Record summary: Guanidine-I riboswitch aptamer: a 120-nucleotide sequence from Trichocoleus sp. FACHB-262.
RNA sequence: UGUUACAGCUUCUAGGGUUCCGACGUAUCCAUCGAGAUAAGUGCCUGGUCCGAGAGAAGCGAAUCUAUUAACUUUUAUAGAGUUUUAUAGGUUACACGGCGGGAUAAAAGCCCGGGAGAG
Numbered sequence: 001u002g003u004u005a006c007a008g009c010u011u012c013u014a015g016g017g018u019u020c021c022g023a024c025g026u027a028u029c030c031a032u033c034g035a036g037a038u039a040a041g042u043g044c045c046u047g048g049u050c051c052g053a054g055a056g057a058a059g060c061g062a063a064u065c066u067a068u069u070a071a072c073u074u075u076u077a078u079a080g081a082g083u084u085u086u087a088u089a090g091g092u093u094a095c096a097c098g099g100c101g102g103g104a105u106a107a108a109a110g111c112c113c114g115g116g117a118g119a120g
Stems, first nucleotide, its partner, number of pairs: 008060005015051002020048002022045001023042002026039003062093007095115001097118001101113003
Dot-bracket structure: .......(((((..((...(((((.(((........))).))..).)).))....))))).(((((((..................))))))).(.[...(((.......))).)..]..

Gene Ontology term of the family: regulation of gene expression. The organism belongs to Trichocoleus, within Bacteria.